This 109-nucleotide sequence from Zea mays belongs to the Rfam family "Small nucleolar RNA Z279/snoR105/snoR108". It scores 102 bits against the family's covariance model. Its Rfam clan is "snoU13 clan". Its family is annotated with nucleolus and RNA processing in the Gene Ontology. NCBI's taxonomy places the organism under Eukaryota, Euphyllophyta, Andropogonodae, Andropogoneae, Zea.
RNA sequence: GGGAUAUGAUGAGUGGUAAAAACUCGGUUUUUUUAUUCCGAGAGGGGUGCCUGCCCCAAAUAAGCCUGUUACGACAACAUGGCGCUCACAUUUUUUACCAUCUGAUCCC
Dot-bracket structure: ((((.........(((((....(((((..........)))))..(((((((...............(((.......))).)))))))........))))).....))))